[Rfam]
RNA sequence: UGUGCUAUACUGGAAUUGUUGCGGAUGCAACCCUUGACGCUUCCUUCUUUCGUCAAGCAUAUUUGAAGCGCGAUUGCCGCUAAAGGAGUUUAGAAUG
Numbered sequence: 001u002g003u004g005c006u007a008u009a010c011u012g013g014a015a016u017u018g019u020u021g022c023g024g025a026u027g028c029a030a031c032c033c034u035u036g037a038c039g040c041u042u043c044c045u046u047c048u049u050u051c052g053u054c055a056a057g058c059a060u061a062u063u064u065g066a067a068g069c070g071c072g073a074u075u076g077c078c079g080c081u082a083a084a085g086g087a088g089u090u091u092a093g094a095a096u097g
Stems, first nucleotide, its partner, number of pairs: 018031005033057007045087005067081004
Shown here is a 97-nucleotide RNA sequence from Streptococcus danieliae, a member of the family "PreQ1-II (pre queuosine) riboswitch aptamer". Pairs were carried over by alignment from the consensus structure, which is taken from published work. Rfam describes the family as follows. preQ1-II riboswitch was first reported for Weinberg et al. 2007 it was recognised in Streptococcaceae and Lactococcus families in 5' untranslated regions of genes of a membrane protein classified as COG4708 or DUF988. Meyers et al. 2008 confirm that preQ1-II recognise the queuosine (Q) precursor pre-queuosine 1 (preQ1). Q is a hyper modified nucleoside present in some anticodons in tRNAs (Try, Asn, Asp and His). The source organism's lineage runs through Bacteria, Bacillati, Bacilli, Streptococcaceae and Streptococcus.